[Rfam]
RNA sequence: GUGAAAUAACCAUUUGUACCGCAGACAGUAGGGGCGGCUUGCCGCUUAAUGAAUCCCUGCCGAGGACAUGAUGAAUUCAGAUUCCAUCUUAAUUGAUGCUGAUUUUAUGCCUCUGUGUCUGUACUGGACCAGAGGCUUUUCUUAUGGACGG
Number, nucleotide and partner (000 for none) at each position: 001g000002u000003g000004a000005a000006a000007u000008a000009a000010c000011c000012a000013u000014u000015u000016g000017u000018a000019c000020c000021g000022c000023a000024g000025a000026c000027a000028g060029u059030a058031g057032g056033g055034g045035c044036g043037g000038c000039u000040u000041g000042c000043c036044g035045c034046u000047u000048a000049a000050u000051g000052a000053a000054u000055c033056c032057c031058u030059g029060c028061c000062g000063a000064g000065g000066a000067c000068a000069u000070g000071a000072u000073g000074a000075a000076u000077u000078c000079a000080g000081a000082u000083u000084c000085c000086a000087u000088c000089u000090u000091a000092a000093u000094u000095g000096a000097u000098g000099c000100u000101g000102a000103u000104u000105u000106u000107a000108u000109g136110c135111c134112u133113c132114u131115g130116u000117g000118u127119c000120u000121g000122u000123a000124c000125u000126g000127g118128a000129c000130c115131a114132g113133a112134g111135g110136c109137u000138u000139u000140u000141c000142u000143u000144a000145u000146g000147g000148a000149c000150g000151g000
RNA: Ribosomal protein L10 leader
Organism: Planococcus rifietoensis